[Rfam]
RNA sequence: AGAGGCUGCAUGGGAGAGAUCGGCCUACUGGCCGGCGCCGACGGAGCAACCCCCCAGGAAACUCUCAGGCAAAAGUGACCAUGCAGCUGAA
Numbered sequence: 001a002g003a004g005g006c007u008g009c010a011u012g013g014g015a016g017a018g019a020u021c022g023g024c025c026u027a028c029u030g031g032c033c034g035g036c037g038c039c040g041a042c043g044g045a046g047c048a049a050c051c052c053c054c055c056a057g058g059a060a061a062c063u064c065u066c067a068g069g070c071a072a073a074a075g076u077g078a079c080c081a082u083g084c085a086g087c088u089g090a091a
Base pairs, nucleotide, nucleotide: 006086007085008084009083010082011081012080013079020035021034022033023032037070038069039068040066041065044064045063046062050057
Shown here is a 91-nucleotide sequence from Aminobacter sp. MSH1, a member of the family "Glycine riboswitch aptamer". A search with the family's covariance model found it, with a score of 66 bits. The base pairs follow the family's consensus structure.